[Rfam]
RNA sequence: CUCAUCACAAUGACCGGGACGAGUAAUCUGCGUUGAUUUUCAGAGAGAAAUCUCAAUAGCUGAAAGAGAUUUCAAAUAAAUCAGAUGAAAACCACCCGCGAGUGAGCAGCUUGAACAGGUUUUUACCUCAAUAUGGCUGCCGGAUGACCCGUUACCGUCAAAAUGAGAUGGUUGGCAAGCCAACCAAACUGGGUGGAACCGCGUGAGUAAAACUCUCGCCCCGGAU
Dot-bracket structure: ......((......((((.......(((((.......(((........((((((...........))))))..))).....)))))........))))...))..((((((.......................))))))(((.....)))..................((((((....))))))....((((.......(((.(((.....))).)))))))...
RNA: T-box leader
Organism: Leptolinea tardivitalis